About this RNA: The record is a 101-nucleotide RNA from Cetobacterium sp. 2A, which matches "Purine riboswitch aptamer" in Rfam. Lineage of the source: Bacteria > Fusobacteriia > Fusobacteriales > Fusobacteriaceae > Cetobacterium. Riboswitches are metabolite binding domains within certain messenger RNAs that serve as precision sensors for their corresponding targets. Pairs were carried over by alignment from the consensus structure, which is taken from published work.

RNA sequence: ACAAUAAUAAUAAAGUUUACUCAUAUAUCUUGGUAAUAUGGUCCAAGAGUCUCUACGUUUUCGCCGUAAAAGAAAACGCUAUGGGUAGAACUUAUACUAUA
Numbered sequence: 001a002c003a004a005u006a007a008u009a010a011u012a013a014a015g016u017u018u019a020c021u022c023a024u025a026u027a028u029c030u031u032g033g034u035a036a037u038a039u040g041g042u043c044c045a046a047g048a049g050u051c052u053c054u055a056c057g058u059u060u061u062c063g064c065c066g067u068a069a070a071a072g073a074a075a076a077c078g079c080u081a082u083g084g085g086u087a088g089a090a091c092u093u094a095u096a097c098u099a100u101a
Base pairs, nucleotide, nucleotide: 018087019086020085021084022083023082024081025080028048029047030046031045032044033043057077058076059075060074061073062072

The match comes from Rfam's covariance-model search (75 bits).